Rfam assigns this 114-nucleotide sequence from Caenorhabditis angaria to the family "Potassium channel RNA editing signal". The family's consensus secondary structure is taken from published work.
[Rfam]
RNA sequence: UGCAGAUAUGGAGAUUUGGUGCCAGUCACACCCACCGGUAAAAUCGUUGGUGGAAUGUGUGCGAUGAUUGGUGUGCUCACUUUGGCCCUGCCAGUUCCAAUUAUUGUGAGUUUU
Numbered sequence: 001u002g003c004a005g006a007u008a009u010g011g012a013g014a015u016u017u018g019g020u021g022c023c024a025g026u027c028a029c030a031c032c033c034a035c036c037g038g039u040a041a042a043a044u045c046g047u048u049g050g051u052g053g054a055a056u057g058u059g060u061g062c063g064a065u066g067a068u069u070g071g072u073g074u075g076c077u078c079a080c081u082u083u084g085g086c087c088c089u090g091c092c093a094g095u096u097c098c099a100a101u102u103a104u105u106g107u108g109a110g111u112u113u114u
Stems, first nucleotide, its partner, number of pairs: 002113001004111001007108005013102004018097002021095002037077004050062002
Overview
Lineage of the source: Eukaryota > Opisthokonta > Bilateria > Protostomia > Caenorhabditis. The family's RNA type in Rfam is cis-regulatory element.